Small nucleolar RNA SNORD59: a 75-nucleotide RNA from Bucco capensis. A search with the family's covariance model found it, with a score of 61 bits. It is annotated as a C/D-box small nucleolar RNA. The family's consensus secondary structure was predicted with ILM.

RNA sequence: CCUUUGGUGAAGAGUUAACUCUUUGACUUCCAUUCUUCUGAGCUUGCUGAAGCAAUGUUUGUUGAUUUGAGGAGG
Dot-bracket structure: (((.(.................................................................).)))